[Rfam]
RNA sequence: AAGGCAGCAACAAGAAAGCACUUCAGUUGGCUAAGCUUAACCCUGUGCUGAUACAAUGCUGCCAGAAUGAAGUCGGGGCCAAGAACAUUUCAGUUUAUUUUAGCCCGUAAACUGAACUACACGUGGUCGUACAUUA
Numbered sequence: 001a002a003g004g005c006a007g008c009a010a011c012a013a014g015a016a017a018g019c020a021c022u023u024c025a026g027u028u029g030g031c032u033a034a035g036c037u038u039a040a041c042c043c044u045g046u047g048c049u050g051a052u053a054c055a056a057u058g059c060u061g062c063c064a065g066a067a068u069g070a071a072g073u074c075g076g077g078g079c080c081a082a083g084a085a086c087a088u089u090u091c092a093g094u095u096u097a098u099u100u101u102a103g104c105c106c107g108u109a110a111a112c113u114g115a116a117c118u119a120c121a122c123g124u125g126g127u128c129g130u131a132c133a134u135u136a
Base pairs, nucleotide, nucleotide: 004062005061006060007059008058009057017049018048019047020046021045028039029038030037078127079126080125081124087118090115091114092113093112094111095110096109097108

Rfam assigns this 136-nucleotide sequence from Drosophila ananassae to the family "Drosophila small cajal body-specific RNA PsiU2-38.40.4". Its family is annotated with RNA processing, nucleolus and Cajal body in the Gene Ontology. Rfam classes the family as a small Cajal body RNA.